A member of the RNA family "Archaeal large subunit ribosomal RNA" from uncultured crenarchaeote 4B7, 374 nucleotides of a longer RNA.

[Rfam]
RNA sequence: CGGGUAUACCGUAUGGUGAGGGAAUUCGGCAAAUUAGUCCUGUAGCUUAGGUAUAAGGGAUGCCUGCACACUUCAUGAGGAAUGGGGUGAGCAGGUUGCAAUGACACGGGGGUUCCGACUGUUUAAUAAAAACACAGGCGACUGCUAGUCCGAAAGGAUUUGUAUAGUCGCUGAAUCCUGGCCGGUGCGGGUACCUAAAACUUGGGUUCAACCGAGCUAAGGGCCCGUUAACGCCGGGAGUAACUCUGACUCUCUUAAGGUAGCCAAAUGCCUUGUCGGGUAAGUUCCGACGCGCAUGAAUGGAACAACGAGAGCCCCACUGUCCCCACCUACAACCCGGUGAAGCCACAUAAGGUGGACGAACAGUCCAUCAA
Numbered sequence: 001c002g003g004g005u006a007u008a009c010c011g012u013a014u015g016g017u018g019a020g021g022g023a024a025u026u027c028g029g030c031a032a033a034u035u036a037g038u039c040c041u042g043u044a045g046c047u048u049a050g051g052u053a054u055a056a057g058g059g060a061u062g063c064c065u066g067c068a069c070a071c072u073u074c075a076u077g078a079g080g081a082a083u084g085g086g087g088u089g090a091g092c093a094g095g096u097u098g099c100a101a102u103g104a105c106a107c108g109g110g111g112g113u114u115c116c117g118a119c120u121g122u123u124u125a126a127u128a129a130a131a132a133c134a135c136a137g138g139c140g141a142c143u144g145c146u147a148g149u150c151c152g153a154a155a156g157g158a159u160u161u162g163u164a165u166a167g168u169c170g171c172u173g174a175a176u177c178c179u180g181g182c183c184g185g186u187g188c189g190g191g192u193a194c195c196u197a198a199a200a201c202u203u204g205g206g207u208u209c210a211a212c213c214g215a216g217c218u219a220a221g222g223g224c225c226c227g228u229u230a231a232c233g234c235c236g237g238g239a240g241u242a243a244c245u246c247u248g249a250c251u252c253u254c255u256u257a258a259g260g261u262a263g264c265c266a267a268a269u270g271c272c273u274u275g276u277c278g279g280g281u282a283a284g285u286u287c288c289g290a291c292g293c294g295c296a297u298g299a300a301u302g303g304a305a306c307a308a309c310g311a312g313a314g315c316c317c318c319a320c321u322g323u324c325c326c327c328a329c330c331u332a333c334a335a336c337c338c339g340g341u342g343a344a345g346c347c348a349c350a351u352a353a354g355g356u357g358g359a360c361g362a363a364c365a366g367u368c369c370a371u372c373a374a
Stems, first nucleotide, its partner, number of pairs: 001339004011333003015330004020325003037061005045052002062096006069089008097101001109318007116310002120134003137172008145162001148159004176304003180235003185232002187228005194223003201216005236254006255259001275291006354372005
Dot-bracket structure: ((((......(((.((((.(((..............(((((...((....))....)))))((((((.((((((((.....)))))))).))))))(...).......(((((((((..(((.........)))..(((((((((..((((....))))..)..))))))))...(((.(((..(((((((..(((....(((((......)))))....))))))))..)))))((((((.......))))))(...)...............((((((.....))))))..........)))....)).)))))))....))).)))))))..))))..............(((((.........)))))..
Record summary: The source organism's lineage runs through Archaea, Thermoproteati, Nitrososphaerota, Nitrososphaeria and Nitrosopumilales. The sequence is in the family's curated seed alignment.